[Rfam]
RNA: Editing element of GABA-3 exon 9
RNA sequence: AAGGUGGCAUAUGCGACAGCCAUGGACUGGUUUAUCGCCGUCUGUUACGCAUUU
Numbered sequence: 001a002a003g004g005u006g007g008c009a010u011a012u013g014c015g016a017c018a019g020c021c022a023u024g025g026a027c028u029g030g031u032u033u034a035u036c037g038c039c040g041u042c043u044g045u046u047a048c049g050c051a052u053u054u
Stems, first nucleotide, its partner, number of pairs: 001054003007050002010047002013045002015042003019038002022035005